[Rfam]
RNA sequence: ACUGCCCCUAGAGGCGUUGCAGGUAUGGCUGCCGUGUCACAUGUGUGUCAGUAGGUGGAAGAGGGGAGAGAGGCUAUGUCUACACUCAGUGUUCUGACCAGUGAACAUCCGAAUGAUUAGUAGCCUGACAGU
Numbered sequence: 001a002c003u004g005c006c007c008c009u010a011g012a013g014g015c016g017u018u019g020c021a022g023g024u025a026u027g028g029c030u031g032c033c034g035u036g037u038c039a040c041a042u043g044u045g046u047g048u049c050a051g052u053a054g055g056u057g058g059a060a061g062a063g064g065g066g067a068g069a070g071a072g073g074c075u076a077u078g079u080c081u082a083c084a085c086u087c088a089g090u091g092u093u094c095u096g097a098c099c100a101g102u103g104a105a106c107a108u109c110c111g112a113a114u115g116a117u118u119a120g121u122a123g124c125c126u127g128a129c130a131g132u
Stems, first nucleotide, its partner, number of pairs: 002061002005058002007055004013049003019046003024041001026039004068129001071126007083115002086112002089109001090107005
RNA: Small nucleolar RNA SNORA17
Organism: Nannospalax galili